[Rfam]
RNA sequence: UCCCGAUGAGGAAGAAUUCCCAAGAGAUAGGAAGUGCCGUAUGACACUUUAAUCAGCAGCGGCAGC
Numbered sequence: 001u002c003c004c005g006a007u008g009a010g011g012a013a014g015a016a017u018u019c020c021c022a023a024g025a026g027a028u029a030g031g032a033a034g035u036g037c038c039g040u041a042u043g044a045c046a047c048u049u050u051a052a053u054c055a056g057c058a059g060c061g062g063c064a065g066c
Stems, first nucleotide, its partner, number of pairs: 014060001031050006
RNA: Small nucleolar RNA U49